RNA sequence: AGGAUAAAAUCAAAAAGAAGUAUACCUCAAAAAUAACUAAUUAAAAAGAAUAAUAAUUAAUGUAAGAGUUAUCCGCUUGGAGCCAACCGGACCAAGACGGUUUU
Numbered sequence: 001a002g003g004a005u006a007a008a009a010u011c012a013a014a015a016a017g018a019a020g021u022a023u024a025c026c027u028c029a030a031a032a033a034u035a036a037c038u039a040a041u042u043a044a045a046a047a048g049a050a051u052a053a054u055a056a057u058u059a060a061u062g063u064a065a066g067a068g069u070u071a072u073c074c075g076c077u078u079g080g081a082g083c084c085a086a087c088c089g090g091a092c093c094a095a096g097a098c099g100g101u102u103u104u
Stems, first nucleotide, its partner, number of pairs: 001027003004023003010018002073100003076096005083090002